RNA sequence: GCCAUUCGCUCGGGGCGCGUCCGCAGACGGACGCUGAGAUGAACCCGUGGAACCUGAUCCGGUUCGAACCGGCGGAGGGAAGCGAUGCGUGGGCACG
Numbered sequence: 001g002c003c004a005u006u007c008g009c010u011c012g013g014g015g016c017g018c019g020u021c022c023g024c025a026g027a028c029g030g031a032c033g034c035u036g037a038g039a040u041g042a043a044c045c046c047g048u049g050g051a052a053c054c055u056g057a058u059c060c061g062g063u064u065c066g067a068a069c070c071g072g073c074g075g076a077g078g079g080a081a082g083c084g085a086u087g088c089g090u091g092g093g094c095a096c097g
Stems, first nucleotide, its partner, number of pairs: 006085005011047004016041001017034005053078003059072004

Shown here is a 97-nucleotide RNA from Vulgatibacter incomptus, a member of the family "TPP riboswitch aptamer (THI element)". Gene Ontology term of the family: thiamine pyrophosphate binding. Vitamin B(1) in its active form thiamin pyrophosphate (TPP) is an essential coenzyme that is synthesised by coupling of pyrimidine and thiazole moieties in bacteria. It scores 69 bits against the family's covariance model.